A member of the RNA family "SAM (S-adenosyl methionine) riboswitch aptamer" from Gulosibacter chungangensis, 117 nucleotides long. A search with the family's covariance model found it, with a score of 61 bits. The family's consensus secondary structure is taken from published work.
RNA sequence: GUUCAAGAGUCGUGAUUGUAGGUACCUGGCUGAUCACGCGACAACCCGAAUCCAUCGAUUCCCGGGUGUCCCAGGGGAAGAACGGGCUCACGAAGAAUCGUGAUGCAAGUAUCGAUG
Numbered sequence: 001g002u003u004c005a006a007g008a009g010u011c012g013u014g015a016u017u018g019u020a021g022g023u024a025c026c027u028g029g030c031u032g033a034u035c036a037c038g039c040g041a042c043a044a045c046c047c048g049a050a051u052c053c054a055u056c057g058a059u060u061c062c063c064g065g066g067u068g069u070c071c072c073a074g075g076g077g078a079a080g081a082a083c084g085g086g087c088u089c090a091c092g093a094a095g096a097a098u099c100g101u102g103a104u105g106c107a108a109g110u111a112u113c114g115a116u117g
Stems, first nucleotide, its partner, number of pairs: 001083004009039001011038006021031002040070003045066003086106002088103006
Dot-bracket structure: ((((....(.((((((....((.......)).)))))))(((..(((................))).))).........))))..((((((((....)))))).))...........